Source information:
Small nucleolar RNA SNORD103/SNORD85: a 77-nucleotide RNA sequence from Oncorhynchus mykiss. Rfam links the family to the GO terms RNA processing and nucleolus.

RNA sequence: UCUGGCUGUGAUGACACACUUGCCCUCACUUAGAGGAGUGCCUCUAUGCUGAGAACUUAGUACUCGUCUGAGCCAAG
Numbered sequence: 001u002c003u004g005g006c007u008g009u010g011a012u013g014a015c016a017c018a019c020u021u022g023c024c025c026u027c028a029c030u031u032a033g034a035g036g037a038g039u040g041c042c043u044c045u046a047u048g049c050u051g052a053g054a055a056c057u058u059a060g061u062a063c064u065c066g067u068c069u070g071a072g073c074c075a076a077g
Stems, first nucleotide, its partner, number of pairs: 001077001003075004
Notes:
The pairing is the family consensus, mapped onto this sequence. By type it is a C/D-box small nucleolar RNA.